[Rfam]
RNA sequence: CUCUUAUCGCGAGCUGGCUGAGGGACUGGCCCUAUGAUGCCCGGCAACCGGCGCUAUUCUAUGUUUACUAGAAAGCGAAACGGUGCUAAUUCCAACGGAUAAGAG
Numbered sequence: 001c002u003c004u005u006a007u008c009g010c011g012a013g014c015u016g017g018c019u020g021a022g023g024g025a026c027u028g029g030c031c032c033u034a035u036g037a038u039g040c041c042c043g044g045c046a047a048c049c050g051g052c053g054c055u056a057u058u059c060u061a062u063g064u065u066u067a068c069u070a071g072a073a074a075g076c077g078a079a080a081c082g083g084u085g086c087u088a089a090u091u092c093c094a095a096c097g098g099a100u101a102a103g104a105g
Base pairs, nucleotide, nucleotide: 001105002104003103004102005101006100007099008098013042016041017040018039022032023031024030027094028093029092043087044086045085046084048083049082052077053076054075055074091097
RNA: SAM riboswitch aptamer (S box leader)
Organism: Brevibacillus centrosporus